[Rfam]
RNA sequence: UGCAUAAAUAGAGGUGCGGACAAAAGGGUAGCUUUAAGGUGCUAAGGGAAGGAACUCCCAAUACUUAAAGUGAAGGGUUUGUCCGCCGAAAGGAUAUGUUGGUUCCUCAGCAUAUCCUUGGUGGUAGGGUGUAAGCUCUAUCACUGCCAUGGUUUAUGCCAUGGAGCGCUAUUUAUGCA
Numbered sequence: 001u002g003c004a005u006a007a008a009u010a011g012a013g014g015u016g017c018g019g020a021c022a023a024a025a026g027g028g029u030a031g032c033u034u035u036a037a038g039g040u041g042c043u044a045a046g047g048g049a050a051g052g053a054a055c056u057c058c059c060a061a062u063a064c065u066u067a068a069a070g071u072g073a074a075g076g077g078u079u080u081g082u083c084c085g086c087c088g089a090a091a092g093g094a095u096a097u098g099u100u101g102g103u104u105c106c107u108c109a110g111c112a113u114a115u116c117c118u119u120g121g122u123g124g125u126a127g128g129g130u131g132u133a134a135g136c137u138c139u140a141u142c143a144c145u146g147c148c149a150u151g152g153u154u155u156a157u158g159c160c161a162u163g164g165a166g167c168g169c170u171a172u173u174u175a176u177g178c179a
Stems, first nucleotide, its partner, number of pairs: 006174006016086009031071008090119012120145011147164007
RNA: Lysine riboswitch aptamer